[Rfam]
RNA: Bacterial RNase P class A
Nucleotides: 399
Stems, first nucleotide, its partner, number of pairs: 001395010011384001012352007020043002023040006048382003052379005057229004064288003070224004074088005089103001090101004104220002109218002111214003126159002128155006136147004167185006187209001188207008233309004268300006280292004316335008
Number, partner (000 for none) and nucleotide at each position: 001395c002394g003393g004392g005391c006390u007389g008388g009387c010386c011384g012352g013351g014350c015349g016348a017347c018346c019000g020043c021042g022000u023040c024039g025038u026037c027036u028035c029000c030000c031000u032000c033000g034000g035028g036027a037026g038025g039024c040023g041000c042021c043020g044000a045000g046000g047000a048382a049381g050380g051000u052379c053378c054377g055376g056375g057229c058228u059227c060226c061000a062000c063000a064288g065287g066286g067000c068000g069000u070224g071223g072222u073221g074088g075087u076086g077085g078084g079000u080000a081000a082000c083000g084078c085077c086076c087075a088074c089103c090101c091100g092099g093098g094000g095000u096000g097000a098093c099092c100091c101090g102000c103089g104220g105219g106000a107000c108000a109218g110217u111214g112213c113212c114000a115000c116000a117000g118000a119000g120000a121000a122000c123000a124000g125000a126159c127158c128155g129154c130153c131152g132151c133150c134000g135000a136147g137146g138145g139144c140000u141000c142000c143000g144139g145138c146137c147136c148000g149000a150133g151132g152131c153130g154129g155128u156000a157000a158127g159126g160000g161000u162000g163000a164000a165000a166000c167185g168184g169183u170182g171181g172180u173000g174000c175000a176000a177000g178000a179000g180172a181171c182170c183169a184168c185167c186000a187209g188207c189206g190205c191204c192203c193202c194201g195200g196000g197000c198000g199000a200195c201194c202193g203192g204191g205190g206189c207188g208000g209187c210000u211000a212113g213112g214111c215000a216000a217110a218109c219105c220104c221073c222072a223071c224070c225000u226060g227059g228058a229057g230000c231000a232000a233309g234308g235307u236306c237000a238000a239000g240000a241000a242000g243000u244000a245000c246000g247000g248000a249000g250000c251000c252000g253000c254000g255000a256000g257000g258000c259000c260000c261000c262000g263000c264000a265000c266000g267000c268300g269299u270298g271297c272296a273295c274000g275000u276000c277000u278000g279000a280292g281291g282290g283289u284000g285000a286066c287065c288064c289283g290282c291281c292280c293000g294000a295273g296272u297271g298270c299269a300268c301000g302000g303000g304000u305000a306236g307235a308234c309233c310000g311000c312000u313000g314000g315000a316335g317334g318333c319332u320331g321330u322329c323328g324000g325000c326000a327000a328323c329322g330321g331320c332319a333318g334317u335316c336000g337000u338000a339000g340000a341000u342000g343000g344000a345000u346018g347017g348016u349015c350014g351013c352012c353000g354000c355000c356000g357000g358000c359000g360000c361000g362000a363000g364000c365000c366000g367000g368000c369000a370000c371000a372000g373000a374000a375056c376055c377054c378053g379052g380050c381049c382048u383000a384011c385000a386010g387009g388008c389007c390006a391005g392004c393003c394002c395001g396000u397000c398000c399000g